[Rfam]
Nucleotides: 079
Stems, first nucleotide, its partner, number of pairs: 001079007
Number, partner (000 for none) and nucleotide at each position: 001079g002078c003077u004076g005075g006074c007073a008000u009000c010000g011000u012000g013000a014000u015000g016000a017000u018000a019000a020000c021000u022000c023000u024000u025000u026000g027000c028000c029000g030000u031000u032000u033000a034000c035000c036000c037000a038000a039000c040000u041000g042000a043000u044000u045000u046000c047000u048000u049000u050000g051000a052000u053000g054000a055000a056000u057000a058000a059000c060000a061000u062000u063000g064000u065000a066000u067000c068000u069000g070000a071000u072000g073007u074006g075005c076004c077003a078002g079001c
This 79-nucleotide RNA from Anser brachyrhynchus belongs to the Rfam family "Small nucleolar RNA SNORD87". The base pairs follow the family's consensus structure. The family's RNA type in Rfam is C/D-box small nucleolar RNA. NCBI's taxonomy places the organism under Eukaryota, Bilateria, Sauria, Anseriformes, Anser.